RNA: Acido-Lenti-1 RNA
RNA sequence: CGUGUGGCUCACGCCACACGCUACAUUAUGUCGGGCUUCCAGCCCU
Numbered sequence: 001c002g003u004g005u006g007g008c009u010c011a012c013g014c015c016a017c018a019c020g021c022u023a024c025a026u027u028a029u030g031u032c033g034g035g036c037u038u039c040c041a042g043c044c045c046u
Stems, first nucleotide, its partner, number of pairs: 001020008033045005